RNA sequence: CUCCAUGUAUCUUUGUCCCUGUGGCAGUCUCCCUUCAUAGCCAUGGAAUAGCAUGUUCUUGUUAUUGGCAAAGCUAUCGCCAUUUCAUUGGUACCAGAUUCUGACUAGAUCAAGUAACAUUC
Numbered sequence: 001c002u003c004c005a006u007g008u009a010u011c012u013u014u015g016u017c018c019c020u021g022u023g024g025c026a027g028u029c030u031c032c033c034u035u036c037a038u039a040g041c042c043a044u045g046g047a048a049u050a051g052c053a054u055g056u057u058c059u060u061g062u063u064a065u066u067g068g069c070a071a072a073g074c075u076a077u078c079g080c081c082a083u084u085u086c087a088u089u090g091g092u093a094c095c096a097g098a099u100u101c102u103g104a105c106u107a108g109a110u111c112a113a114g115u116a117a118c119a120u121u122c
Stems, first nucleotide, its partner, number of pairs: 002047006015033001019027003060119004065113003069108001071106001074097002079092004

Description: A member of the RNA family "Small nucleolar RNA SNORA24" from Rattus norvegicus, 122 nucleotides long. The family's consensus secondary structure was predicted with RNAfold. Rfam classes the family as an H/ACA-box small nucleolar RNA. ACA24 is a member of the H/ACA class of snoRNA that guide the sites of modification of uridines to pseudouridines.